[Rfam]
RNA: U5 spliceosomal RNA
Organism: Raphanus sativus
RNA sequence: AGCCAUGUGGUGAGCACAAAGCGAACUAUUCUUUCGCCUUUUACUAAAGAAUACCGUGUGCUCUCCAUGCAAAUUGGCAUACGCCUAUUUUUGGAGGGUCUUGCUUCAAGUGAGCC
Numbered sequence: 001a002g003c004c005a006u007g008u009g010g011u012g013a014g015c016a017c018a019a020a021g022c023g024a025a026c027u028a029u030u031c032u033u034u035c036g037c038c039u040u041u042u043a044c045u046a047a048a049g050a051a052u053a054c055c056g057u058g059u060g061c062u063c064u065c066c067a068u069g070c071a072a073a074u075u076g077g078c079a080u081a082c083g084c085c086u087a088u089u090u091u092u093g094g095a096g097g098g099u100c101u102u103g104c105u106u107c108a109a110g111u112g113a114g115c116c
Base pairs, nucleotide, nucleotide: 003077004076005075008067009066010065012063013062014061015060016059017058018057027053028052029051030050031049032048033047034046098116100114101113102112103111